Shown here is a 151-nucleotide sequence from Phytohabitans rumicis, a member of the family "FMN riboswitch aptamer (RFN element)". For this family Rfam cites "FMN riboswitch aptamer symmetry facilitates conformational switching through mutually exclusive coaxial stacking configurations" (Wilt et al., J Struct Biol X, 2020).

[Rfam]
RNA sequence: ACGCGCUGGCGGGGCUCGGUGAAAUUCCGAACCGGCGGUGAUCCGGGGGCAUGACGCCUCGGAGAGCCCGCGACCCGGUCGUAUCCAACGGCCGGUGGACCUGGUGUAAAUCCAGGGCCGACGGUCAAAGUCCGGAUGGGAGUUGGCGCGA
Numbered sequence: 001a002c003g004c005g006c007u008g009g010c011g012g013g014g015c016u017c018g019g020u021g022a023a024a025u026u027c028c029g030a031a032c033c034g035g036c037g038g039u040g041a042u043c044c045g046g047g048g049g050c051a052u053g054a055c056g057c058c059u060c061g062g063a064g065a066g067c068c069c070g071c072g073a074c075c076c077g078g079u080c081g082u083a084u085c086c087a088a089c090g091g092c093c094g095g096u097g098g099a100c101c102u103g104g105u106g107u108a109a110a111u112c113c114a115g116g117g118c119c120g121a122c123g124g125u126c127a128a129a130g131u132c133c134g135g136a137u138g139g140g141a142g143u144u145g146g147c148g149c150g151a
Base pairs, nucleotide, nucleotide: 003149004148005147006146007145008144009143010142017029018028019027031131032130033120034119035071036070037069038068066118067117075095076094100116101115102114103113104112122134123133124132
It scores 102 bits against the family's covariance model. The base pairs follow the family's consensus structure, which is taken from published work.